A member of the RNA family "Streptomyces RNA 5676" from Streptomyces sp. ADI95-17, 130 nucleotides long. Rfam's curators write: Identified by deep sequencing of transcriptome at the end of exponential growth phase. The pairing is the family consensus, mapped onto this sequence. It scores 123 bits against the family's covariance model.
[Rfam]
RNA sequence: AGAUGAGAGAAACACCCCGCCCGCAGGGGACUGCGGGCGAUGCCGGGCCGGAGCUUCCCCAGCGCCGUCCUGGCCGUGCCUUCGCGCACGCGGCUGGAGCCUCCGGCUCCGGAACUCCUCACCGAUCGGA
Numbered sequence: 001a002g003a004u005g006a007g008a009g010a011a012a013c014a015c016c017c018c019g020c021c022c023g024c025a026g027g028g029g030a031c032u033g034c035g036g037g038c039g040a041u042g043c044c045g046g047g048c049c050g051g052a053g054c055u056u057c058c059c060c061a062g063c064g065c066c067g068u069c070c071u072g073g074c075c076g077u078g079c080c081u082u083c084g085c086g087c088a089c090g091c092g093g094c095u096g097g098a099g100c101c102u103c104c105g106g107c108u109c110c111g112g113a114a115c116u117c118c119u120c121a122c123c124g125a126u127c128g129g130a
Stems, first nucleotide, its partner, number of pairs: 004121004009117002018039009042074006049067003053063002076089004094112008122129002
Dot-bracket structure: ...((((.((.......(((((((((....)))))))))..((((((.(((.((.......)).))).)))))).((((......))))....((((((((...))))))))...))))))((....)).